Shown here is a 113-nucleotide sequence from Pelosinus sp. UFO1, a member of the family "PyrR binding site". Lineage of the source: Bacteria > Bacillati > Negativicutes > Sporomusaceae > Pelosinus. The family's consensus secondary structure is taken from published work. It scores 66 bits against the family's covariance model.

[Rfam]
RNA sequence: AUAACCUUUAAGUUAGUCCAGAGAGGCUAAUAAGGUACACAAUGAUGUAGCUGCAAAAACAGCUUUAUCUAUUAUGACCUUUAAACUCUUACUCUGGUAAGAGUUUUUUUAUU
Numbered sequence: 001a002u003a004a005c006c007u008u009u010a011a012g013u014u015a016g017u018c019c020a021g022a023g024a025g026g027c028u029a030a031u032a033a034g035g036u037a038c039a040c041a042a043u044g045a046u047g048u049a050g051c052u053g054c055a056a057a058a059a060c061a062g063c064u065u066u067a068u069c070u071a072u073u074a075u076g077a078c079c080u081u082u083a084a085a086c087u088c089u090u091a092c093u094c095u096g097g098u099a100a101g102a103g104u105u106u107u108u109u110u111a112u113u
Stems, first nucleotide, its partner, number of pairs: 004036005013030006041072001044069004049064005083106010